The record is a 72-nucleotide sequence from Danio rerio, which matches "mir-153 microRNA precursor family" in Rfam.
Rfam's curators put it in the seed alignment.
RNA sequence: GUCUGUGUCAUUUUUGUGGUUUGCAGCUAGUAGUCUGGUUCCAGUUGCAUAGUCACAAAAAUGAGCACAGAC
Dot-bracket structure: .(((((((((((((((((((.(((((((..............)))))))..))))))))))))).)))))).
Numbered sequence: 001g002u003c004u005g006u007g008u009c010a011u012u013u014u015u016g017u018g019g020u021u022u023g024c025a026g027c028u029a030g031u032a033g034u035c036u037g038g039u040u041c042c043a044g045u046u047g048c049a050u051a052g053u054c055a056c057a058a059a060a061a062u063g064a065g066c067a068c069a070g071a072c
Stems, first nucleotide, its partner, number of pairs: 002071006008064013022049007
Taxonomically the source falls in Danio (Eukaryota, Deuterostomia, Otomorpha, Cypriniformes). On this family, see Tesfaye et al., Mol Reprod Dev 2009: "Identification and expression profiling of microRNAs during bovine oocyte maturation using heterologous approach". The base pairs follow the family's consensus structure, which was predicted with RNAalifold.